This 92-nucleotide sequence from Cynara cardunculus belongs to the Rfam family "Small nucleolar RNA R44/J54/Z268 family". Gene Ontology terms of the family: RNA processing and nucleolus. Lineage of the source: Eukaryota > Streptophyta > Spermatophyta > Asteraceae > Cynara cardunculus subsp. cardunculus. A search with the family's covariance model found it, with a score of 83 bits.
[Rfam]
RNA sequence: AUUGCAAGUGAUGAUAAAAAGACAGGGACAUCAGAACUUCAAUUUUGGAGUAGGGAUGACCAAGUCUAUAAUGGGAAUCUCUCUGAUGCAAU
Numbered sequence: 001a002u003u004g005c006a007a008g009u010g011a012u013g014a015u016a017a018a019a020a021g022a023c024a025g026g027g028a029c030a031u032c033a034g035a036a037c038u039u040c041a042a043u044u045u046u047g048g049a050g051u052a053g054g055g056a057u058g059a060c061c062a063a064g065u066c067u068a069u070a071a072u073g074g075g076a077a078u079c080u081c082u083c084u085g086a087u088g089c090a091a092u
Base pairs, nucleotide, nucleotide: 002091003090004089005088006087